[Rfam]
Shown here is a 69-nucleotide RNA sequence from Candidatus Accumulibacter aalborgensis, a member of the family "int-alpA RNA". The base pairs follow the family's consensus structure, which is taken from published work.
RNA sequence: GCCGCGCCUAUCUCGACGGGGAGAAAACCGGAAUCCUUCACCGGCUGGCGCGGCACCCUACUUUGAAGA
Numbered sequence: 001g002c003c004g005c006g007c008c009u010a011u012c013u014c015g016a017c018g019g020g021g022a023g024a025a026a027a028c029c030g031g032a033a034u035c036c037u038u039c040a041c042c043g044g045c046u047g048g049c050g051c052g053g054c055a056c057c058c059u060a061c062u063u064u065g066a067a068g069a
Base pairs, nucleotide, nucleotide: 001054002053003052004051005050006049007048008047011022012021013020014019028044029043030042031041036068037067038066039065040064